[Rfam]
RNA: 6S-Flavo RNA
Organism: Aurantibacter aestuarii
RNA sequence: ACUCAACGUUAAUGCUCUUAAAAAGGGUGAGUUUUAAUUGUAAAAGCAAGCUGUUAGUGCCAGUUUAUUCUGGUAUUUAGGACAGAUCCUUGAUCAAUUAGUUAGCCCUAAACUUGUUUUAAGGAGUUU
Numbered sequence: 001a002c003u004c005a006a007c008g009u010u011a012a013u014g015c016u017c018u019u020a021a022a023a024a025g026g027g028u029g030a031g032u033u034u035u036a037a038u039u040g041u042a043a044a045a046g047c048a049a050g051c052u053g054u055u056a057g058u059g060c061c062a063g064u065u066u067a068u069u070c071u072g073g074u075a076u077u078u079a080g081g082a083c084a085g086a087u088c089c090u091u092g093a094u095c096a097a098u099u100a101g102u103u104a105g106c107c108c109u110a111a112a113c114u115u116g117u118u119u120u121a122a123g124g125a126g127u128u129u
Base pairs, nucleotide, nucleotide: 024109025108026107027106028105035100036099037098038097039096044091045090046089051085052084053083054082